[Rfam]
RNA sequence: GCGAGGAUGAAGAAGAAAAUCAUUCGGAUUCCCAUUGAUUUGUAAAAACAUGAGAUCUUUAACCAGCUACUUCUGACUCGU
Numbered sequence: 001g002c003g004a005g006g007a008u009g010a011a012g013a014a015g016a017a018a019a020u021c022a023u024u025c026g027g028a029u030u031c032c033c034a035u036u037g038a039u040u041u042g043u044a045a046a047a048a049c050a051u052g053a054g055a056u057c058u059u060u061a062a063c064c065a066g067c068u069a070c071u072u073c074u075g076a077c078u079c080g081u
Base pairs, nucleotide, nucleotide: 001081002080003079004078005077
RNA: Small nucleolar RNA R12